This 47-nucleotide sequence from Bubo bubo belongs to the Rfam family "Histone 3' UTR stem-loop". The base pairs follow the family's consensus structure, which is taken from published work. It is annotated as a cis-regulatory element. Rfam's curators write: The mRNAs of metazoan histone genes lack a poly-A tail. 3' end processing occurs at a site between a highly conserved stem-loop (modelled by this family) and a purine rich region around 20 nts downstream (the histone downstream element, or HDE). The stem-loop is bound by a 31 kDa stem-loop binding protein (SLBP - also termed the histone hairpin binding protein, or HBP). The source organism's lineage runs through Eukaryota, Sauria, Archelosauria, Neoaves and Bubo. For this family Rfam cites "The sequence of the stem and flanking sequences at the 3' end of histone mRNA are critical determinants for the binding of the stem-loop binding protein" (Williams and Marzluff, Nucleic Acids Res, 1995).

[Rfam]
RNA sequence: CCAAAGGCUCUUUUAAGAGCCACCCACUUUUUUCCGUCAAGAGAGCU
Numbered sequence: 001c002c003a004a005a006g007g008c009u010c011u012u013u014u015a016a017g018a019g020c021c022a023c024c025c026a027c028u029u030u031u032u033u034c035c036g037u038c039a040a041g042a043g044a045g046c047u
Stems, first nucleotide, its partner, number of pairs: 006021006